[Rfam]
RNA: c-di-GMP-I riboswitch aptamer
RNA sequence: CCCUCAUAAGGGCAAACCUAUUGAAAGAUAGGGACGCAAAGCUACGGGUCUAAAGUGAUGAUUGCGAUGACGGCCGGGCUGCCGAU
Numbered sequence: 001c002c003c004u005c006a007u008a009a010g011g012g013c014a015a016a017c018c019u020a021u022u023g024a025a026a027g028a029u030a031g032g033g034a035c036g037c038a039a040a041g042c043u044a045c046g047g048g049u050c051u052a053a054a055g056u057g058a059u060g061a062u063u064g065c066g067a068u069g070a071c072g073g074c075c076g077g078g079c080u081g082c083c084g085a086u
Stems, first nucleotide, its partner, number of pairs: 012037002017032006040080004045076003048071003055065004